Shown here is a 92-nucleotide RNA sequence from Erysipelothrix larvae, a member of the family "THF (Tetrahydrofolate) riboswitch aptamer". Its family is annotated with tetrahydrofolate metabolic process in the Gene Ontology. On this family, see Ames et al., Chem Biol 2010: "A eubacterial riboswitch class that senses the coenzyme tetrahydrofolate".

[Rfam]
RNA sequence: AGCAAAGUAGACGACAUGCGUUAAGUGCUAGUGGAUGGGAUGUUGCCGCUGGACGAAGCUUUAAGUGCGAUAUGUCGAUUGCAUCCGUUGCA
Numbered sequence: 001a002g003c004a005a006a007g008u009a010g011a012c013g014a015c016a017u018g019c020g021u022u023a024a025g026u027g028c029u030a031g032u033g034g035a036u037g038g039g040a041u042g043u044u045g046c047c048g049c050u051g052g053a054c055g056a057a058g059c060u061u062u063a064a065g066u067g068c069g070a071u072a073u074g075u076c077g078a079u080u081g082c083a084u085c086c087g088u089u090g091c092a
Base pairs, nucleotide, nucleotide: 002091003090004089005088010080011079012077013076014075015074016073017072018071019069020068021067025054026053028052029051030050031049032048033047034046038086039085040084041083042082058066059065060064